Shown here is a 301-nucleotide sequence, a member of the family "Mycobacterium smegmatis small RNA 1". Its family is annotated with RNA polymerase binding in the Gene Ontology. Rfam describes the family as follows. Mycobacterium smegmatis small RNA 1 is highly expressed during stationary phase of growth. Ms1 RNA directly interacts with RNA polymerase (RNAP), but in a different way than 6S, which is present in other bacteria. Ms1 does not require the presence of the main sigma factor for RNAP interaction. The family's consensus secondary structure was predicted with CMfinder.

RNA sequence: ACGGAAGCCUGAGAGGCCAAGCUCGAGCCGGAAGAGAAGGCUCGAUCUCCCGCAUCAGGCUACCCAGCACGGAUCCCGGCACCCACGCGGAGCUAAAGCCGCUGAUUAGGCAAAAGUGUUGCGGGCCUGCGUAGUUGCGAAGAGCGGAUGGCCACGACGACCCUUUGGGUAGGGUUGCAGUCGUAGCGCAUCGCAAGACGCCGAGGCCACCCACGCACACCAGAACAGCACGCUUGGUAACCGGAGUCCGUGCUAGCGGGCGGCGAGCCGAACAGAUUCGGAACGCCGCCCGUUCUCAGUU
Numbered sequence: 001a002c003g004g005a006a007g008c009c010u011g012a013g014a015g016g017c018c019a020a021g022c023u024c025g026a027g028c029c030g031g032a033a034g035a036g037a038a039g040g041c042u043c044g045a046u047c048u049c050c051c052g053c054a055u056c057a058g059g060c061u062a063c064c065c066a067g068c069a070c071g072g073a074u075c076c077c078g079g080c081a082c083c084c085a086c087g088c089g090g091a092g093c094u095a096a097a098g099c100c101g102c103u104g105a106u107u108a109g110g111c112a113a114a115a116g117u118g119u120u121g122c123g124g125g126c127c128u129g130c131g132u133a134g135u136u137g138c139g140a141a142g143a144g145c146g147g148a149u150g151g152c153c154a155c156g157a158c159g160a161c162c163c164u165u166u167g168g169g170u171a172g173g174g175u176u177g178c179a180g181u182c183g184u185a186g187c188g189c190a191u192c193g194c195a196a197g198a199c200g201c202c203g204a205g206g207c208c209a210c211c212c213a214c215g216c217a218c219a220c221c222a223g224a225a226c227a228g229c230a231c232g233c234u235u236g237g238u239a240a241c242c243g244g245a246g247u248c249c250g251u252g253c254u255a256g257c258g259g260g261c262g263g264c265g266a267g268c269c270g271a272a273c274a275g276a277u278u279c280g281g282a283a284c285g286c287c288g289c290c291c292g293u294u295c296u297c298a299g300u301u
Stems, first nucleotide, its partner, number of pairs: 003064002006061007015051002020048002024044006066254008076244004083237003087233003092229002098111003118220002120217004124208005129201004135196006144189003148184005158177007256293010268281003